RNA sequence: CUGUCCACCCACCGGAAGCCCCCCGGGAAACUUCCGGCAGUGCGGAUACGCUGAGCGGGUGCCUCCUUCGCGGAGCGCAUAGCCGACAGCCGUCGCACACCAGGAGCACCUCUAUG
Numbered sequence: 001c002u003g004u005c006c007a008c009c010c011a012c013c014g015g016a017a018g019c020c021c022c023c024c025g026g027g028a029a030a031c032u033u034c035c036g037g038c039a040g041u042g043c044g045g046a047u048a049c050g051c052u053g054a055g056c057g058g059g060u061g062c063c064u065c066c067u068u069c070g071c072g073g074a075g076c077g078c079a080u081a082g083c084c085g086a087c088a089g090c091c092g093u094c095g096c097a098c099a100c101c102a103g104g105a106g107c108a109c110c111u112c113u114a115u116g
Stems, first nucleotide, its partner, number of pairs: 060079003063075004082096002085094003
The record is a 116-nucleotide RNA sequence from Streptomyces harbinensis, which matches "Streptomyces-metH RNA" in Rfam. A search with the family's covariance model found it, with a score of 69 bits. Lineage of the source: Bacteria > Bacillati > Actinomycetota > Kitasatosporales > Streptomyces.